[Rfam]
RNA sequence: UUAUGAACUUUGUCCUGAGCACAUUACUUAGAUCGGUUCUAGAAAGUCAUGUCGGGA
Numbered sequence: 001u002u003a004u005g006a007a008c009u010u011u012g013u014c015c016u017g018a019g020c021a022c023a024u025u026a027c028u029u030a031g032a033u034c035g036g037u038u039c040u041a042g043a044a045a046g047u048c049a050u051g052u053c054g055g056g057a
Stems, first nucleotide, its partner, number of pairs: 019037002023033003
The family of this 57-nucleotide RNA from Olea europaea is "Plastid-ndhJ 3UTR RNA". The family's RNA type in Rfam is cis-regulatory element. Rfam 15.1 lists 869 matches to the family in 155 species.